[Rfam]
RNA sequence: GUAAAUGCUAUGUGUACGUCGCUCUGGAUAAGAGCAUCUGCUAAAUGCCUGUAA
Dot-bracket structure: ............((((....(((((.....)))))...))).)...........